[Rfam]
RNA sequence: AACCUGACGACAUGUUUGCUGGCGUUGCCGGCUGCAUGCCCAGGCAGUCGAGACCUUCAAGACUGCGGUGCCUCGUUGCACUGGUUGGUCUGUUCUACCGGCGCAUUCCGCGCCAAUCACUCAACCCACAAGGGACGCCCUCCCUUGUGGCGGG
Number, nucleotide and partner (000 for none) at each position: 001a000002a000003c000004c000005u000006g000007a000008c000009g000010a000011c038012a037013u036014g035015u000016u000017u000018g032019c031020u030021g029022g028023c027024g000025u000026u000027g023028c022029c021030g020031g019032c018033u000034g000035c014036a013037u012038g011039c000040c000041c000042a000043g000044g066045c065046a064047g063048u062049c061050g000051a000052g086053a085054c084055c083056u000057u000058c000059a000060a000061g049062a048063c047064u046065g045066c044067g082068g081069u080070g079071c078072c000073u000074c000075g000076u000077u000078g071079c070080a069081c068082u067083g055084g054085u053086u052087g000088g000089u000090c000091u000092g000093u000094u000095c000096u000097a000098c000099c000100g000101g000102c000103g000104c000105a000106u000107u000108c000109c000110g000111c000112g000113c000114c000115a000116a000117u000118c000119a000120c000121u154122c153123a000124a000125c000126c000127c000128a148129c147130a146131a145132g144133g143134g142135a141136c000137g000138c000139c000140c000141u135142c134143c133144c132145u131146u130147g129148u128149g000150g000151c000152g000153g122154g121
This 154-nucleotide RNA from Bordetella petrii belongs to the Rfam family "radC RNA". The source organism's lineage runs through Bacteria, Pseudomonadota, Betaproteobacteria, Burkholderiales and Bordetella. The family has 148 seed sequences and 500 matches in Rfam 15.1. It is one of the family's seed sequences.